The record is a 126-nucleotide RNA sequence from Trichogramma brassicae, which matches "Small Cajal body specific RNA 8" in Rfam. The literature on the family includes a 2002 paper in EMBO J by Darzacq et al., "Cajal body-specific small nuclear RNAs: a novel class of 2'-O-methylation and pseudouridylation guide RNAs". A search with the family's covariance model found it, with a score of 65 bits.

[Rfam]
Nucleotides: 126
Base pairs, nucleotide, nucleotide: 002055003054004053005052006051007050015043016042017041022035023034024033064120065119066118067117068116069115070114078105079104080103083100085098086097
Number, partner (000 for none) and nucleotide at each position: 001000u002055a003054g004053g005052a006051g007050a008000u009000a010000g011000a012000u013000a014000c015043a016042c017041g018000a019000a020000a021000a022035c023034a024033u025000u026000g027000u028000a029000u030000u031000c032000a033024a034023u035022g036000u037000a038000u039000u040000c041017u042016g043015u044000c045000a046000c047000a048000a049000a050007u051006c052005u053004c054003c055002u056000u057000a058000g059000a060000a061000u062000a063000a064120u065119a066118g067117c068116u069115u070114u071000c072000u073000a074000a075000u076000g077000a078105c079104u080103g081000u082000a083100a084000c085098u086097u087000g088000u089000c090000a091000a092000g093000u094000a095000u096000u097086a098085a099000u100083u101000u102000a103080c104079a105078g106000a107000c108000a109000g110000a111000u112000a113000c114070g115069g116068a117067g118066c119065u120064a121000a122000c123000a124000u125000u126000c
From the family's description: scaRNAs are a specific class of small nuclear RNAs which localise to the Cajal bodies and guide the modification of RNA polymerase II transcribed spliceosomal RNAs U1, U2, U4, U5 and U12.